[Rfam]
RNA sequence: AAAAAGGGCUUCUGCCGUGCGUGGCACGGGGGGGCUUUGUGCGGCCGCCCCUGCGGAAUCGACAUCAAGAGAUUUCGGAAGCACAAUUUUUGUAGGAGGGGGUCGCUGGUAACCGCUUGUUCUGGCGCCCCG
Numbered sequence: 001a002a003a004a005a006g007g008g009c010u011u012c013u014g015c016c017g018u019g020c021g022u023g024g025c026a027c028g029g030g031g032g033g034g035c036u037u038u039g040u041g042c043g044g045c046c047g048c049c050c051c052u053g054c055g056g057a058a059u060c061g062a063c064a065u066c067a068a069g070a071g072a073u074u075u076c077g078g079a080a081g082c083a084c085a086a087u088u089u090u091u092g093u094a095g096g097a098g099g100g101g102g103u104c105g106c107u108g109g110u111a112a113c114c115g116c117u118u119g120u121u122c123u124g125g126c127g128c129c130c131c132g
Base pairs, nucleotide, nucleotide: 008082009081010080011079012078013026014025015024016023017022027053028052029051030050031049032048033046034045035044036043054077055076056075057074058073059072060071100130101129102128103127105126106125107124108123109122111121112120113119
The record is a 132-nucleotide RNA sequence from Caloenas nicobarica, which matches "U11 spliceosomal RNA" in Rfam. It scores 106 bits against the family's covariance model. The source organism's lineage runs through Eukaryota, Bilateria, Sauropsida, Archelosauria and Caloenas. It is annotated as a spliceosomal small nuclear RNA.